[Rfam]
RNA sequence: AACAAAAUGAGGAGGUCAUUAGAUCUGAAGUAUCUAACGUUGAUACAUCAUUCAUGGUCUUCAAAGUUCUCUGAUUGUU
Numbered sequence: 001a002a003c004a005a006a007a008u009g010a011g012g013a014g015g016u017c018a019u020u021a022g023a024u025c026u027g028a029a030g031u032a033u034c035u036a037a038c039g040u041u042g043a044u045a046c047a048u049c050a051u052u053c054a055u056g057g058u059c060u061u062c063a064a065a066g067u068u069c070u071c072u073g074a075u076u077g078u079u
Stems, first nucleotide, its partner, number of pairs: 001079005